[Rfam]
RNA: rne-II RNA
RNA sequence: AUACGUGUAGGGUGGAGAUGCACAACCGUCGGACCGUGUAGUACUGCGUCCAGCCCGCGGCCACAGGCCAGCGACCGGACCCGUUCUCGAUCAAGGAUGCCCCCCGGGCGUCCACGGACGAAGGCUGAUUCCUCCUCCUGACUGACGUGCAUUUGACACAACAGCAAGCAGGACGCGUCGUCGCGGCUUCGGCAGCACUGGUCACCAGUCAGCCGAACCCCGCUGGACACGGGAUGGCCCCGCCACCCCUGACGCACCUGACACCGACCGUGAGAAGUCGUGUGUGCCGCACGCCGUUUCCGGCAGCCCGGAAACCGA
Numbered sequence: 001a002u003a004c005g006u007g008u009a010g011g012g013u014g015g016a017g018a019u020g021c022a023c024a025a026c027c028g029u030c031g032g033a034c035c036g037u038g039u040a041g042u043a044c045u046g047c048g049u050c051c052a053g054c055c056c057g058c059g060g061c062c063a064c065a066g067g068c069c070a071g072c073g074a075c076c077g078g079a080c081c082c083g084u085u086c087u088c089g090a091u092c093a094a095g096g097a098u099g100c101c102c103c104c105c106g107g108g109c110g111u112c113c114a115c116g117g118a119c120g121a122a123g124g125c126u127g128a129u130u131c132c133u134c135c136u137c138c139u140g141a142c143u144g145a146c147g148u149g150c151a152u153u154u155g156a157c158a159c160a161a162c163a164g165c166a167a168g169c170a171g172g173a174c175g176c177g178u179c180g181u182c183g184c185g186g187c188u189u190c191g192g193c194a195g196c197a198c199u200g201g202u203c204a205c206c207a208g209u210c211a212g213c214c215g216a217a218c219c220c221c222g223c224u225g226g227a228c229a230c231g232g233g234a235u236g237g238c239c240c241c242g243c244c245a246c247c248c249c250u251g252a253c254g255c256a257c258c259u260g261a262c263a264c265c266g267a268c269c270g271u272g273a274g275a276a277g278u279c280g281u282g283u284g285u286g287c288c289g290c291a292c293g294c295c296g297u298u299u300c301c302g303g304c305a306g307c308c309c310g311g312a313a314a315c316c317g318a
Stems, first nucleotide, its partner, number of pairs: 014135004023127002026124002029121003036115003077087003096112004136173005176254004180228003183223004190215004195210001231249003235245003261285004265280004296315007